[Rfam]
RNA sequence: AAACCGGAUGCCGAAAAGGUUAUAGAGUAGGCG
Numbered sequence: 001a002a003a004c005c006g007g008a009u010g011c012c013g014a015a016a017a018g019g020u021u022a023u024a025g026a027g028u029a030g031g032c033g
Stems, first nucleotide, its partner, number of pairs: 002021004010032003

A member of the RNA family "DUF805b RNA", 33 nucleotides long. Its Rfam clan is "DUF805 clan". The family's consensus secondary structure is taken from published work. By type it is a cis-regulatory element.